[Rfam]
Burkholderia RNA 7 (anti-hemB): a 91-nucleotide RNA from Chitiniphilus eburneus. Rfam's curators write: This RNA motif was identified by computational search in b-proteobacteria Burkholderia. Co-purified with Hfq, expression confirmed by Northern blot. Taxonomically the source falls in Chitiniphilus (Bacteria, Pseudomonadota, Betaproteobacteria, Chitinibacteraceae). It scores 69 bits against the family's covariance model. Rfam links the family to the GO terms protein binding and bacterial biofilm matrix. Rfam 15.1 lists 479 matches to the family in 458 species.

RNA sequence: CCUCCCGCUUUUCCUCCCUGAGCGGGUGCCUCGGCAGCGUGCCGGGGCUGUUAUACCCCGGUCAUUCUCCCCUUGGACCGGGGUUUCUUUU
Numbered sequence: 001c002c003u004c005c006c007g008c009u010u011u012u013c014c015u016c017c018c019u020g021a022g023c024g025g026g027u028g029c030c031u032c033g034g035c036a037g038c039g040u041g042c043c044g045g046g047g048c049u050g051u052u053a054u055a056c057c058c059c060g061g062u063c064a065u066u067c068u069c070c071c072c073u074u075g076g077a078c079c080g081g082g083g084u085u086u087c088u089u090u091u
Base pairs, nucleotide, nucleotide: 004026005025006024007023008022009021028048029047030046031045032044033043034042056083057082058081059080060079061078062077063076